[Rfam]
The record is a 132-nucleotide RNA sequence from Prolemur simus, which matches "Small nucleolar RNA U109" in Rfam.

RNA sequence: UUGCCUGUGGAAGUGUCUGCUCCUCAUUCCUUUGUGAGCAGGAAUACAUUCAUAGCACGCUACAUCAAGAAAGUUCUCAGGGCUGCCAAACUUACAGUAAAGGGUGAGUUAUAGUAUAUUUCUCCUACAGAA
Numbered sequence: 001u002u003g004c005c006u007g008u009g010g011a012a013g014u015g016u017c018u019g020c021u022c023c024u025c026a027u028u029c030c031u032u033u034g035u036g037a038g039c040a041g042g043a044a045u046a047c048a049u050u051c052a053u054a055g056c057a058c059g060c061u062a063c064a065u066c067a068a069g070a071a072a073g074u075u076c077u078c079a080g081g082g083c084u085g086c087c088a089a090a091c092u093u094a095c096a097g098u099a100a101a102g103g104g105u106g107a108g109u110u111a112u113a114g115u116a117u118a119u120u121u122c123u124c125c126u127a128c129a130g131a132a
Base pairs, nucleotide, nucleotide: 003060004059006057007056008055016042017041018040019039020038021037022036023034072123073122082112086108087106088105091102092101093100

NCBI's taxonomy places the organism under Eukaryota, Teleostomi, Mammalia, Strepsirrhini, Prolemur. The literature on the family includes a 2005 paper in Nucleic Acids Res by Gu et al., "A novel experimental approach for systematic identification of box H/ACA snoRNAs from eukaryotes". The match comes from Rfam's covariance-model search (109 bits).